This 89-nucleotide RNA sequence from Saimiri boliviensis belongs to the Rfam family "mir-562 microRNA precursor family". For this family Rfam cites "Annotation of 390 bovine miRNA genes by sequence similarity with other species" (Strozzi et al., Anim Genet, 2009).
RNA sequence: AUUGCUGGGUCAUAUGGUCAGUCUACUUUUAGAAUAACUGUGAAACUAUUUUUCAAAGUAGCUGUACCAUUUGCAUUCUCCAUGGCAAU
Numbered sequence: 001a002u003u004g005c006u007g008g009g010u011c012a013u014a015u016g017g018u019c020a021g022u023c024u025a026c027u028u029u030u031a032g033a034a035u036a037a038c039u040g041u042g043a044a045a046c047u048a049u050u051u052u053u054c055a056a057a058g059u060a061g062c063u064g065u066a067c068c069a070u071u072u073g074c075a076u077u078c079u080c081c082a083u084g085g086c087a088a089u
Stems, first nucleotide, its partner, number of pairs: 001089006007081003011073002014070005019064003023061007032054003036050002040046002